[Rfam]
Shown here is a 176-nucleotide RNA sequence from Methylobacterium sp. Leaf99, a member of the family "caulobacter sRNA CC2171". A search with the family's covariance model found it, with a score of 88 bits.

RNA sequence: CAACGAACGAAAGGAGGUGAUCCAGUGUCUCAUUGUCAUCAGCCGCUCUCCCCGGCCACCCUGACCUGGACCGUCGCCUCCGGCGCUACCGUUUAAGCGCUCGGCGGGAAGAUCAAGGGAACGGCCGGACCCCAGCGGUUCGGCAAUGGAAGGCCCGCCCCUCGAGGGGCGGGCCU
Number, nucleotide and partner (000 for none) at each position: 001c000002a000003a000004c000005g000006a000007a000008c000009g000010a000011a000012a000013g000014g000015a000016g023017g022018u000019g000020a000021u000022c017023c016024a000025g000026u000027g000028u000029c000030u000031c148032a147033u146034u145035g144036u143037c142038a000039u000040c000041a000042g000043c000044c068045g000046c000047u000048c000049u064050c063051c000052c000053c000054g000055g000056c000057c000058a000059c000060c000061c000062u000063g050064a049065c000066c000067u000068g044069g078070a000071c076072c000073g000074u000075c000076g071077c000078c069079u000080c118081c117082g114083g000084c000085g000086c111087u000088a000089c107090c106091g105092u104093u103094u000095a000096a000097g000098c000099g000100c000101u000102c000103g093104g092105c091106g090107g089108g000109a000110a000111g086112a000113u000114c082115a000116a000117g081118g080119g000120a000121a000122c000123g000124g000125c138126c137127g136128g000129a000130c000131c000132c000133c000134a000135g000136c127137g126138g125139u000140u000141c000142g037143g036144c035145a034146a033147u032148g031149g000150a000151a176152g175153g174154c173155c172156c171157g170158c169159c168160c167161c166162u000163c000164g000165a000166g161167g160168g159169g158170c157171g156172g155173g154174c153175c152176u151